RNA: msiK RNA
RNA sequence: AACGUACUCCCUUUACGACGGAUCGUCCGGCACGUACCUGCCGGUGAAGGAGCACUCA
Numbered sequence: 001a002a003c004g005u006a007c008u009c010c011c012u013u014u015a016c017g018a019c020g021g022a023u024c025g026u027c028c029g030g031c032a033c034g035u036a037c038c039u040g041c042c043g044g045u046g047a048a049g050g051a052g053c054a055c056u057c058a
Base pairs, nucleotide, nucleotide: 009050010049012048013047014046015045027044028043029042030041031040032039